RNA: SAM riboswitch aptamer (S box leader)
Organism: Croceivirga radicis
RNA sequence: UAGUUAUCAAGAAAGGUGGAGGGAAUAGACCCUUUGAAGCCUUAGCAACCCUUGAGCGUUACCAACGACUGUUGGUACUCCAAGAAGGUGCUACAUUCUACCCUUGUGGGAAGGAUAACAC
Numbered sequence: 001u002a003g004u005u006a007u008c009a010a011g012a013a014a015g016g017u018g019g020a021g022g023g024a025a026u027a028g029a030c031c032c033u034u035u036g037a038a039g040c041c042u043u044a045g046c047a048a049c050c051c052u053u054g055a056g057c058g059u060u061a062c063c064a065a066c067g068a069c070u071g072u073u074g075g076u077a078c079u080c081c082a083a084g085a086a087g088g089u090g091c092u093a094c095a096u097u098c099u100a101c102c103c104u105u106g107u108g109g110g111a112a113g114g115a116u117a118a119c120a121c
Stems, first nucleotide, its partner, number of pairs: 003119006013043005021032003026100004044092004049088002051084004096113001101110003